[Rfam]
RNA sequence: UCCUUGACGCUCUGUUUGAGUAUCCUGAAAACGGGCUUUUCAAGAUCAGAGUGUCAACUAAUUAACAAUAGGAGUGCAUAGUGGCCCGUAUUGCAGGCAUUAACAUUCCUGAU
Numbered sequence: 001u002c003c004u005u006g007a008c009g010c011u012c013u014g015u016u017u018g019a020g021u022a023u024c025c026u027g028a029a030a031a032c033g034g035g036c037u038u039u040u041c042a043a044g045a046u047c048a049g050a051g052u053g054u055c056a057a058c059u060a061a062u063u064a065a066c067a068a069u070a071g072g073a074g075u076g077c078a079u080a081g082u083g084g085c086c087c088g089u090a091u092u093g094c095a096g097g098c099a100u101u102a103a104c105a106u107u108c109c110u111g112a113u
Stems, first nucleotide, its partner, number of pairs: 004057010024097003032088004040112003
RNA: Alpha operon ribosome binding site